[Rfam]
A member of the RNA family "Mammalian CPEB3 ribozyme" from Alligator mississippiensis, 75 nucleotides long. The family's consensus secondary structure is taken from published work. A search with the family's covariance model found it, with a score of 44 bits.
RNA sequence: UCAAGAGUUCAAGGCCAUAGGAGAAGCAUGUAUGGGGCAGCCCUUUCAGAUUCCAGUGAAUCUGCAAGUUCUGCU
Numbered sequence: 001u002c003a004a005g006a007g008u009u010c011a012a013g014g015c016c017a018u019a020g021g022a023g024a025a026g027c028a029u030g031u032a033u034g035g036g037g038c039a040g041c042c043c044u045u046u047c048a049g050a051u052u053c054c055a056g057u058g059a060a061u062c063u064g065c066a067a068g069u070u071c072u073g074c075u
Stems, first nucleotide, its partner, number of pairs: 013042003019075002022072004026038002047064007